Glycine riboswitch aptamer: an 81-nucleotide RNA sequence from Caryophanon tenue.
RNA sequence: CGAGCAUUUUCUGGAGAGAGUAUAAGUAAUUAUACCGCCGAAGGGUUAACCAUCUCAGGCAAAGCGGACAGAAAGGUAUUU
Number, nucleotide and partner (000 for none) at each position: 001c000002g000003a000004g000005c000006a000007u075008u074009u073010u072011c071012u070013g069014g000015a000016g000017a000018g000019a000020g035021u034022a033023u032024a000025a000026g000027u000028a000029a000030u000031u000032a023033u022034a021035c020036c000037g060038c059039c058040g056041a055042a000043g000044g054045g053046u052047u000048a000049a000050c000051c000052a046053u045054c044055u041056c040057a000058g039059g038060c037061a000062a000063a000064g000065c000066g000067g000068a000069c013070a012071g011072a010073a009074a008075g007076g000077u000078a000079u000080u000081u000
The source organism's lineage runs through Bacteria, Bacillati, Bacillota, Caryophanales and Caryophanon.
Its family is annotated with glycine biosynthetic process in the Gene Ontology.